[Rfam]
RNA: Small nucleolar RNA SNORA33
RNA sequence: AAGCCAGCCAAUAAAUCUGCUUACCUGGACGUGUUUCUGCAGAAAUUUAGAGAAAGCGGGCAAUAGUAAAGCCAUGUUAUGAGCUUUCAAGACAUUGACAUCAUUAAGGUCCCUGAAAAUGGCUGUAAGA
Numbered sequence: 001a002a003g004c005c006a007g008c009c010a011a012u013a014a015a016u017c018u019g020c021u022u023a024c025c026u027g028g029a030c031g032u033g034u035u036u037c038u039g040c041a042g043a044a045a046u047u048u049a050g051a052g053a054a055a056g057c058g059g060g061c062a063a064u065a066g067u068a069a070a071g072c073c074a075u076g077u078u079a080u081g082a083g084c085u086u087u088c089a090a091g092a093c094a095u096u097g098a099c100a101u102c103a104u105u106a107a108g109g110u111c112c113c114u115g116a117a118a119a120u121g122g123c124u125g126u127a128a129g130a
Base pairs, nucleotide, nucleotide: 003061004060005059007057016043017042018041019040020039071123072122073121074120083110084109085108086107087106089104091102092101